[Rfam]
RNA sequence: AUGAGCGCCGCAAGAGAUAUCUCAUGCAAAGCGUGAGAAGCCGAAGGUGCAAGGGCAGUGGCCCCAAUCUCUCAGGCAAAAGGAUUGCGACGUGACG
Number, nucleotide and partner (000 for none) at each position: 001a000002u000003g000004a000005g000006c092007g091008c000009c089010g088011c087012a086013a085014g000015a000016g000017a000018u000019a000020u038021c037022u036023c035024a000025u000026g000027c000028a000029a000030a000031g000032c000033g000034u000035g023036a022037g021038a020039a000040g077041c076042c075043g073044a072045a000046g000047g071048u000049g069050c000051a000052a000053g064054g063055g000056c000057a000058g000059u000060g000061g000062c000063c054064c053065c000066a000067a000068u000069c049070u000071c047072u044073c043074a000075g042076g041077c040078a000079a000080a000081a000082g000083g000084a000085u013086u012087g011088c010089g009090a000091c007092g006093u000094g000095a000096c000097g000
The family of this 97-nucleotide sequence from Acetomicrobium mobile is "Glycine riboswitch aptamer". This family represents the bacterial glycine riboswitch. Clan: Glycine riboswitch clan.